Shown here is a 133-nucleotide RNA from Slepowronvirus LP101, a member of the family "Listeria sRNA rli62". For this family Rfam cites "The Listeria transcriptional landscape from saprophytism to virulence" (Toledo-Arana et al., Nature, 2009).
RNA sequence: UUACAAAUAAAAUAAUAUAUUAAGUCUGCACUUCACUUCUCAUCUAUAAUCACAUGAUGAUAUAGCAGGAGGUUGCUAUAUUGCCGGACAGAGGCUUUGUAUCUGAUCGUUGGUCUUGAUGGGAGACGCAUCC
Numbered sequence: 001u002u003a004c005a006a007a008u009a010a011a012a013u014a015a016u017a018u019a020u021u022a023a024g025u026c027u028g029c030a031c032u033u034c035a036c037u038u039c040u041c042a043u044c045u046a047u048a049a050u051c052a053c054a055u056g057a058u059g060a061u062a063u064a065g066c067a068g069g070a071g072g073u074u075g076c077u078a079u080a081u082u083g084c085c086g087g088a089c090a091g092a093g094g095c096u097u098u099g100u101a102u103c104u105g106a107u108c109g110u111u112g113g114u115c116u117u118g119a120u121g122g123g124a125g126a127c128g129c130a131u132c133c
Stems, first nucleotide, its partner, number of pairs: 026091003031086001034083002045056003060081008093117002100112002103109001118132004122127001